[Rfam]
RNA sequence: GUCAAGUAGCGUAAAAGGCGCUGCUAGUCGGGCGUGCCCUUCCGGGGGCACGCGCGGCGACAUCAUCAAAUUGUCGGGGACCUCCUAAAGCUGGCAGCUACCAAGCGGGCGCCGAAAGGCAGCCCGUGGCCGGGGUAAUGACCUUGGGUAGGGUAAAAACGCGCCAGAUGCCACAAUGGACAAUCCGCAGCCAAGUCCUACGUCCGCCGGGCCCCGGCCCUGCGGAUAGGGAUGCAGUUCAACGACUAGACGGUGGUGGGCUUCCCGCCGGGGGGCGCGACCUGCGCAGCCCGUCGGGGUGGCUUAAGAUAUAGUCUACUCCCAGGCCGAAAGGCCGGG
Numbered sequence: 001g002u003c004a005a006g007u008a009g010c011g012u013a014a015a016a017g018g019c020g021c022u023g024c025u026a027g028u029c030g031g032g033c034g035u036g037c038c039c040u041u042c043c044g045g046g047g048g049c050a051c052g053c054g055c056g057g058c059g060a061c062a063u064c065a066u067c068a069a070a071u072u073g074u075c076g077g078g079g080a081c082c083u084c085c086u087a088a089a090g091c092u093g094g095c096a097g098c099u100a101c102c103a104a105g106c107g108g109g110c111g112c113c114g115a116a117a118g119g120c121a122g123c124c125c126g127u128g129g130c131c132g133g134g135g136u137a138a139u140g141a142c143c144u145u146g147g148g149u150a151g152g153g154u155a156a157a158a159a160c161g162c163g164c165c166a167g168a169u170g171c172c173a174c175a176a177u178g179g180a181c182a183a184u185c186c187g188c189a190g191c192c193a194a195g196u197c198c199u200a201c202g203u204c205c206g207c208c209g210g211g212c213c214c215c216g217g218c219c220c221u222g223c224g225g226a227u228a229g230g231g232a233u234g235c236a237g238u239u240c241a242a243c244g245a246c247u248a249g250a251c252g253g254u255g256g257u258g259g260g261c262u263u264c265c266c267g268c269c270g271g272g273g274g275g276c277g278c279g280a281c282c283u284g285c286g287c288a289g290c291c292c293g294u295c296g297g298g299g300u301g302g303c304u305u306a307a308g309a310u311a312u313a314g315u316c317u318a319c320u321c322c323c324a325g326g327c328c329g330a331a332a333g334g335c336c337g338g339g
Base pairs, nucleotide, nucleotide: 003011061258062257063256064255065254067252072189073188075187076186077185078184083180084179085178190238191237195233196232197231198230203226204225205224206223207222242317244316245315246314247313248312260303261302262301264299265298266297325336326335327334328333
Background:
Group I catalytic intron: a 339-nucleotide sequence from Moelleriella libera. The match comes from Rfam's covariance-model search (70 bits). The family's consensus secondary structure is taken from published work. On this family, see Cech, Annu Rev Biochem 1990: "Self-splicing of group I introns". Lineage of the source: Eukaryota > Sordariomycetes > Clavicipitaceae > Moelleriella > Moelleriella libera. Group I catalytic introns are large self-splicing ribozymes. They catalyse their own excision from mRNA, tRNA and rRNA precursors in a wide range of organisms.